[Rfam]
The family of this 126-nucleotide RNA sequence from Lysobacter soli is "SAM riboswitch aptamer (S box leader)". Gene Ontology term of the family: regulation of gene expression. It scores 75 bits against the family's covariance model.
RNA sequence: CAUCCAUCGAGACCGGCUGAGGGACAGGCCCUUUGAAGCCGGGGCAACCCAACCCAGCGCGCAAGCGCGGGCGAAGGUGCCAACUCCUGCGACGGGGCGCGUCAGGCGCCGGUCGAAAGAUGGUUG
Dot-bracket structure: ((.(((((....(((((...(((.[[[[)))......)))))((((.(((..(................)..)..))))))...(]]]]((((.(..............).))))..)))))).))